[Rfam]
RNA sequence: UAUUGUUCUGAUCAUCUCAGGUCGCUAUUAGGAAAGAAAGACCAGCCAGGUCCUUUGGAGCUGAUCAGAUUAAUACAGAAGCUACUGAUUCCAACAUCCUCAACCUAACUCUCUUCUGAAACAAAAUGAAGUGUACAAAUUCCAUCUUGGCUUUUCAGCUCUACAUCAUU
Numbered sequence: 001u002a003u004u005g006u007u008c009u010g011a012u013c014a015u016c017u018c019a020g021g022u023c024g025c026u027a028u029u030a031g032g033a034a035a036g037a038a039a040g041a042c043c044a045g046c047c048a049g050g051u052c053c054u055u056u057g058g059a060g061c062u063g064a065u066c067a068g069a070u071u072a073a074u075a076c077a078g079a080a081g082c083u084a085c086u087g088a089u090u091c092c093a094a095c096a097u098c099c100u101c102a103a104c105c106u107a108a109c110u111c112u113c114u115u116c117u118g119a120a121a122c123a124a125a126a127u128g129a130a131g132u133g134u135a136c137a138a139a140u141u142c143c144a145u146c147u148u149g150g151c152u153u154u155u156c157a158g159c160u161c162u163a164c165a166u167c168a169u170u
Stems, first nucleotide, its partner, number of pairs: 008068007015121001017119002019112003024104001026102001031098002040090002043087003049083003054079004123169001126166003131145003135141001149160004
The record is a 170-nucleotide RNA from Ictidomys tridecemlineatus, which matches "Interferon gamma 5' UTR regulatory element" in Rfam.
By type it is a cis-regulatory element.
A search with the family's covariance model found it, with a score of 97 bits.
The family's consensus secondary structure is taken from published work.
Taxonomically the source falls in Ictidomys (Eukaryota, Sarcopterygii, Theria, Euarchontoglires).